[Rfam]
RNA sequence: GUGCCUUAAACUAAUGAGUAAGGAAAAUAACGCUGUCCAGUGGAAUAACUGGAAUAGCAAUUAAUUACUCGAAUUUUUGUAUAGGGGCGACAGGUUACCCGCUUGAGUAGAUUCCACUACUUUUCGGAAUCUAUUCGUGUUGUAGCGACCUAGCCC
Numbered sequence: 001g002u003g004c005c006u007u008a009a010a011c012u013a014a015u016g017a018g019u020a021a022g023g024a025a026a027a028u029a030a031c032g033c034u035g036u037c038c039a040g041u042g043g044a045a046u047a048a049c050u051g052g053a054a055u056a057g058c059a060a061u062u063a064a065u066u067a068c069u070c071g072a073a074u075u076u077u078u079g080u081a082u083a084g085g086g087g088c089g090a091c092a093g094g095u096u097a098c099c100c101g102c103u104u105g106a107g108u109a110g111a112u113u114c115c116a117c118u119a120c121u122u123u124u125c126g127g128a129a130u131c132u133a134u135u136c137g138u139g140u141u142g143u144a145g146c147g148a149c150c151u152a153g154c155c156c
Base pairs, nucleotide, nucleotide: 004023005022006021007020008019032049034047051068053066054065055064085156086155087154088153092151093150094149095148096147098145101140102139104137105136106135107134108133112129113128114127115126